[Rfam]
RNA sequence: GGGAACAAAGCCAAACCCGUUGCGAAGCGGGGACGGAAAGCUGCGGGCCUAAGCGUGAGCGGAGGUAGCCGGGUUGCUCCAG
Numbered sequence: 001g002g003g004a005a006c007a008a009a010g011c012c013a014a015a016c017c018c019g020u021u022g023c024g025a026a027g028c029g030g031g032g033a034c035g036g037a038a039a040g041c042u043g044c045g046g047g048c049c050u051a052a053g054c055g056u057g058a059g060c061g062g063a064g065g066u067a068g069c070c071g072g073g074u075u076g077c078u079c080c081a082g
Stems, first nucleotide, its partner, number of pairs: 003079002011036002016031006034068001039075004044071003047066003

Rfam assigns this 82-nucleotide RNA sequence from Nitrosospira lacus to the family "c-di-GMP-I-GGC riboswitch aptamer". A search with the family's covariance model found it, with a score of 64 bits. Taxonomically the source falls in Nitrosospira (Bacteria, Pseudomonadota, Betaproteobacteria, Nitrosomonadales). On this family, see Smith et al., Biochemistry 2010: "Structural and biochemical determinants of ligand binding by the c-di-GMP riboswitch ".